RNA sequence: CCCAGGGCUUGCGCCCUGGGCUGGUAUAUGCCGCGCCUUCAGCGCU
Numbered sequence: 001c002c003c004a005g006g007g008c009u010u011g012c013g014c015c016c017u018g019g020g021c022u023g024g025u026a027u028a029u030g031c032c033g034c035g036c037c038u039u040c041a042g043c044g045c046u
Stems, first nucleotide, its partner, number of pairs: 001020008033045004
Acido-Lenti-1 RNA: a 46-nucleotide sequence from Granulicella tundricola. Lineage of the source: Bacteria > Pseudomonadati > Acidobacteriaceae > Granulicella > Granulicella tundricola. The base pairs follow the family's consensus structure, which is taken from published work. By type it is a small RNA.